[Rfam]
RNA: Group I catalytic intron
RNA sequence: AAUAAUAGCUUAUUAUAAAUUGUUCGCUUUCACGGAAACGUGUUUGAAUAAUAACCCAUUGAAUUGCUGGAAAACCCUAAAGGCAACAAAACCACAGCAUAACGAUGAAACAAGCGUAGGUGCGAUGGUGGCGAAAGCAGAAAAAAUUCGUUGUAUAGCGCAAGGUUAAACCCUAAACGCUAAAUAGUGGGCAAUCAGCAGCCAAGACCCGAACAGGGUAAGGUUCAGAGACUAUCCCGUAAGGGAGUAGAGUUGCAAGCGAUUGGCGACUCGAAGUGGUGGGCAUCCGAAAGGAUGAAGAUAUAGUCCAUGCUCUUGCUGAAAAGCAGAG
Numbered sequence: 001a002a003u004a005a006u007a008g009c010u011u012a013u014u015a016u017a018a019a020u021u022g023u024u025c026g027c028u029u030u031c032a033c034g035g036a037a038a039c040g041u042g043u044u045u046g047a048a049u050a051a052u053a054a055c056c057c058a059u060u061g062a063a064u065u066g067c068u069g070g071a072a073a074a075c076c077c078u079a080a081a082g083g084c085a086a087c088a089a090a091a092c093c094a095c096a097g098c099a100u101a102a103c104g105a106u107g108a109a110a111c112a113a114g115c116g117u118a119g120g121u122g123c124g125a126u127g128g129u130g131g132c133g134a135a136a137g138c139a140g141a142a143a144a145a146a147u148u149c150g151u152u153g154u155a156u157a158g159c160g161c162a163a164g165g166u167u168a169a170a171c172c173c174u175a176a177a178c179g180c181u182a183a184a185u186a187g188u189g190g191g192c193a194a195u196c197a198g199c200a201g202c203c204a205a206g207a208c209c210c211g212a213a214c215a216g217g218g219u220a221a222g223g224u225u226c227a228g229a230g231a232c233u234a235u236c237c238c239g240u241a242a243g244g245g246a247g248u249a250g251a252g253u254u255g256c257a258a259g260c261g262a263u264u265g266g267c268g269a270c271u272c273g274a275a276g277u278g279g280u281g282g283g284c285a286u287c288c289g290a291a292a293g294g295a296u297g298a299a300g301a302u303a304u305a306g307u308c309c310a311u312g313c314u315c316u317u318g319c320u321g322a323a324a325a326g327c328a329g330a331g
Stems, first nucleotide, its partner, number of pairs: 001024006031042003055283004060278002065200006075191003201224002206219001208217002228309001230308005286295003316329005